[Rfam]
RNA sequence: UUUGUAUUUUAUAAAUAACCUAAGACAGUAGGGGCGAAUGCUUAAUAAUCCUACCGAGGUGAAAUUUGACUUGAUGAACUUUCAAGCACUUUUUACCAUGGGUGAAAAGUGCUUUUUUAAUAAUUUA
Numbered sequence: 001u002u003u004g005u006a007u008u009u010u011a012u013a014a015a016u017a018a019c020c021u022a023a024g025a026c027a028g029u030a031g032g033g034g035c036g037a038a039u040g041c042u043u044a045a046u047a048a049u050c051c052u053a054c055c056g057a058g059g060u061g062a063a064a065u066u067u068g069a070c071u072u073g074a075u076g077a078a079c080u081u082u083c084a085a086g087c088a089c090u091u092u093u094u095a096c097c098a099u100g101g102g103u104g105a106a107a108a109g110u111g112c113u114u115u116u117u118u119a120a121u122a123a124u125u126u127a
Stems, first nucleotide, its partner, number of pairs: 028054006034041002086112010
Source information:
Rfam assigns this 127-nucleotide RNA from Macrococcoides bohemicum to the family "Ribosomal protein L10 leader". This family is a putative r-protein leader autoregulatory structure found in B. subtilis and other low-GC Gram-positive bacteria. It is located in the 5' untranslated regions of mRNAs encoding ribosomal proteins L10 and L12 (rplJ-rplL). Its family is annotated with regulation of gene expression in the Gene Ontology. The family's RNA type in Rfam is cis-regulatory leader.